RNA sequence: UUGAAGAAUUUGAAGACAUCAACUUGCAGACUUGGAGAAUUUAAAUACUUCAACUUGCAUACUUGGAGAUUUUAAAAACUCCAUCU
Numbered sequence: 001u002u003g004a005a006g007a008a009u010u011u012g013a014a015g016a017c018a019u020c021a022a023c024u025u026g027c028a029g030a031c032u033u034g035g036a037g038a039a040u041u042u043a044a045a046u047a048c049u050u051c052a053a054c055u056u057g058c059a060u061a062c063u064u065g066g067a068g069a070u071u072u073u074a075a076a077a078a079c080u081c082c083a084u085c086u
Stems, first nucleotide, its partner, number of pairs: 002083002005080002009076006017068001019066003025059004032053006
RNA: MIR8024 microRNA precursor family
Organism: Solanum lycopersicum